[Rfam]
Fungal signal recognition particle RNA: a 345-nucleotide RNA from Trichoglossum hirsutum.
Rfam 15.1 lists 748 matches to the family in 741 species.
Pairs were carried over by alignment from the consensus structure, which is taken from published work.
Rfam classes the family as a non-coding RNA gene.
Its family is annotated with signal recognition particle, plasma membrane targeting, signal recognition particle, endoplasmic reticulum targeting and SRP-dependent cotranslational protein targeting to membrane, signal sequence recognition in the Gene Ontology.
The organism belongs to Trichoglossum, within Eukaryota.
RNA sequence: GGCUGUCAUGGCCCCAAAAUCCCAGAAGCCCAAUCGUUCCCCACACGCGAGCCACGGCCCUUCGCGUUCUUCGUGGCGCGGGGCGCAGGAAAGGUGCCCGGUUCGAAUCCGGUGGGGGCGUCCAACUCGUGCGGGUAGCCCACGAAGCAAAAAUUUCACAUUUGCGGCGCCUUCAGCGAUGAAGAGCACGCUCGAGGGAAGCUGAUUCUGCAGAGGCCUCUUCACCAUCGGGUGGCGGUGCUGGAUCACACGGGGUUCUUGUGGGCCGUAAGGCGGGCGUGGCUCCGUGGGGGAAGUGAGGGUUGUGGCGACUGGGGAAAUUUUUUUUUUUUUGAGGGGUUUUUU
Numbered sequence: 001g002g003c004u005g006u007c008a009u010g011g012c013c014c015c016a017a018a019a020u021c022c023c024a025g026a027a028g029c030c031c032a033a034u035c036g037u038u039c040c041c042c043a044c045a046c047g048c049g050a051g052c053c054a055c056g057g058c059c060c061u062u063c064g065c066g067u068u069c070u071u072c073g074u075g076g077c078g079c080g081g082g083g084c085g086c087a088g089g090a091a092a093g094g095u096g097c098c099c100g101g102u103u104c105g106a107a108u109c110c111g112g113u114g115g116g117g118g119c120g121u122c123c124a125a126c127u128c129g130u131g132c133g134g135g136u137a138g139c140c141c142a143c144g145a146a147g148c149a150a151a152a153a154u155u156u157c158a159c160a161u162u163u164g165c166g167g168c169g170c171c172u173u174c175a176g177c178g179a180u181g182a183a184g185a186g187c188a189c190g191c192u193c194g195a196g197g198g199a200a201g202c203u204g205a206u207u208c209u210g211c212a213g214a215g216g217c218c219u220c221u222u223c224a225c226c227a228u229c230g231g232g233u234g235g236c237g238g239u240g241c242u243g244g245a246u247c248a249c250a251c252g253g254g255g256u257u258c259u260u261g262u263g264g265g266c267c268g269u270a271a272g273g274c275g276g277g278c279g280u281g282g283c284u285c286c287g288u289g290g291g292g293g294a295a296g297u298g299a300g301g302g303u304u305g306u307g308g309c310g311a312c313u314g315g316g317g318a319a320a321u322u323u324u325u326u327u328u329u330u331u332u333u334g335a336g337g338g339g340u341u342u343u344u345u
Stems, first nucleotide, its partner, number of pairs: 001013003017343003021339003028332001035298004040293003044289004050284007058276002063080006088257002094251003098244005103238003107233009121152001127145005133140002172176001180224007191215003198208003